[Rfam]
RNA sequence: CUGACAAUAGGAAUAGCAAUUCGUAUAAUUCCGGGAAUUGGCCCGGAAGUUUCUACGAGGUCACCGUAAAUGAUCUGGCUACGAAGAGGGAUGAGGAUAGA
Numbered sequence: 001c002u003g004a005c006a007a008u009a010g011g012a013a014u015a016g017c018a019a020u021u022c023g024u025a026u027a028a029u030u031c032c033g034g035g036a037a038u039u040g041g042c043c044c045g046g047a048a049g050u051u052u053c054u055a056c057g058a059g060g061u062c063a064c065c066g067u068a069a070a071u072g073a074u075c076u077g078g079c080u081a082c083g084a085a086g087a088g089g090g091a092u093g094a095g096g097a098u099a100g101a
Base pairs, nucleotide, nucleotide: 020085021084022083023082024081025080029048030047031046032045033044034043035042058076059075060074061073062072063071
Rfam assigns this 101-nucleotide RNA from Paenibacillus sp. 7541 to the family "Purine riboswitch aptamer". It scores 72 bits against the family's covariance model.